[Rfam]
RNA sequence: UCUUCAUUUCACACACUCUCUCAUCGGUCAGAGAGGCGAGAUAGCACGUGAAAUGAAGAAA
Numbered sequence: 001u002c003u004u005c006a007u008u009u010c011a012c013a014c015a016c017u018c019u020c021u022c023a024u025c026g027g028u029c030a031g032a033g034a035g036g037c038g039a040g041a042u043a044g045c046a047c048g049u050g051a052a053a054u055g056a057a058g059a060a061a
Base pairs, nucleotide, nucleotide: 001059002058003057004056005055006054007053010050012048016044017043019041020040021039022038

The record is a 61-nucleotide sequence from Pristionchus pacificus, which matches "mir-8364 microRNA precursor family" in Rfam. It scores 70 bits against the family's covariance model. The family's consensus secondary structure was predicted with RNAalifold.